[Rfam]
RNA sequence: UGUUAGUACUCUAUAAUACUGUAAUUCUUAAGAAUUUGGUCAGGAUUGGAAAAUAGCAGCCAUAUUAAGACAGUACAGGUAUUACGAAUAUUACUAACAGAGA
Numbered sequence: 001u002g003u004u005a006g007u008a009c010u011c012u013a014u015a016a017u018a019c020u021g022u023a024a025u026u027c028u029u030a031a032g033a034a035u036u037u038g039g040u041c042a043g044g045a046u047u048g049g050a051a052a053a054u055a056g057c058a059g060c061c062a063u064a065u066u067a068a069g070a071c072a073g074u075a076c077a078g079g080u081a082u083u084a085c086g087a088a089u090a091u092u093a094c095u096a097a098c099a100g101a102g103a
Base pairs, nucleotide, nucleotide: 004096005095006094007093008092010087011086014084015083016082017079019078020077021076022075023074026070027069028068029067030066031065037062038061039060040059045054046053047052
RNA: Bacterial small signal recognition particle RNA
Organism: Buchnera aphidicola